[Rfam]
RNA: Vault RNA
RNA sequence: GCACUGUUUUAGCUCAGUGGUUACUUCGAGCACAAAUUCUUUCAGAAUACUUCUCUCCAUCCCUCCCCGGGAUUGAACCACGGGCGCUGUCCAGUGUUUUU
Number, nucleotide and partner (000 for none) at each position: 001g000002c096003a095004c094005u093006g092007u000008u000009u000010u000011a000012g085013c084014u083015c082016a000017g081018u080019g079020g078021u000022u000023a000024c000025u077026u076027c075028g074029a073030g000031c000032a000033c000034a000035a000036a000037u000038u000039c000040u000041u000042u000043c000044a000045g000046a000047a000048u000049a000050c000051u000052u000053c000054u000055c000056u000057c000058c000059a000060u000061c000062c000063c000064u000065c000066c000067c000068c000069g000070g000071g000072a000073u029074u028075g027076a026077a025078c020079c019080a018081c017082g015083g014084g013085c012086g000087c000088u000089g000090u000091c000092c006093a005094g004095u003096g002097u000098u000099u000100u000101u000